The record is a 398-nucleotide RNA sequence from Phaeovibrio sulfidiphilus, which matches "Bacterial RNase P class A" in Rfam. By type it is a ribozyme. The match comes from Rfam's covariance-model search (280 bits). NCBI's taxonomy places the organism under Bacteria, Pseudomonadati, Pseudomonadota, Rhodospirillaceae, Phaeovibrio.
RNA sequence: UCAGAGGAUCGGAUGGCCGCUGCCGGGCUCGCGCCCGGGGGAGGAAAGUCCGGGCUCCACGGAGACGCGGCGCCGGGUAACACCCGGCGGGGGCGACCCCCGGGACAGUGCCACAGAAAGCAAACCGCCGGUCUAUACGGCCGGCAAGGGUGAAAGGGUGCGGCAAGAGCGCACCGCGCGCCCGGCAACGGGAGCGGCACGGUAAACCCCGCCGGGAGCAAGAUCAAAAAGGAACGGCAGUCCCUCUCGCGGGGACAGACGGAGUUUCCGGGUCGCCGUUCGGGUAGUAUCGCACGAGGCGUCCGGCGACGGGCGUCCCAGAUGAAUGGCCAUCCCCGCUGCAGGCACCCCGGUGUGUGCGGUGUGGACAGAACCCGGCUUACAGAUCCUCUGACGCG
Numbered sequence: 001u002c003a004g005a006g007g008a009u010c011g012g013a014u015g016g017c018c019g020c021u022g023c024c025g026g027g028c029u030c031g032c033g034c035c036c037g038g039g040g041g042a043g044g045a046a047a048g049u050c051c052g053g054g055c056u057c058c059a060c061g062g063a064g065a066c067g068c069g070g071c072g073c074c075g076g077g078u079a080a081c082a083c084c085c086g087g088c089g090g091g092g093g094c095g096a097c098c099c100c101c102g103g104g105a106c107a108g109u110g111c112c113a114c115a116g117a118a119a120g121c122a123a124a125c126c127g128c129c130g131g132u133c134u135a136u137a138c139g140g141c142c143g144g145c146a147a148g149g150g151u152g153a154a155a156g157g158g159u160g161c162g163g164c165a166a167g168a169g170c171g172c173a174c175c176g177c178g179c180g181c182c183c184g185g186c187a188a189c190g191g192g193a194g195c196g197g198c199a200c201g202g203u204a205a206a207c208c209c210c211g212c213c214g215g216g217a218g219c220a221a222g223a224u225c226a227a228a229a230a231g232g233a234a235c236g237g238c239a240g241u242c243c244c245u246c247u248c249g250c251g252g253g254g255a256c257a258g259a260c261g262g263a264g265u266u267u268c269c270g271g272g273u274c275g276c277c278g279u280u281c282g283g284g285u286a287g288u289a290u291c292g293c294a295c296g297a298g299g300c301g302u303c304c305g306g307c308g309a310c311g312g313g314c315g316u317c318c319c320a321g322a323u324g325a326a327u328g329g330c331c332a333u334c335c336c337c338g339c340u341g342c343a344g345g346c347a348c349c350c351c352g353g354u355g356u357g358u359g360c361g362g363u364g365u366g367g368a369c370a371g372a373a374c375c376c377g378g379c380u381u382a383c384a385g386a387u388c389c390u391c392u393g394a395c396g397c398g
Stems, first nucleotide, its partner, number of pairs: 001394010011383001012334007020041002023038006046381003050378005055218004063267004068214005073087005088102001089100004103209002108207002110203003125149002127145007157175006176198001177196003181192004222291003225287001232281006260270003298317008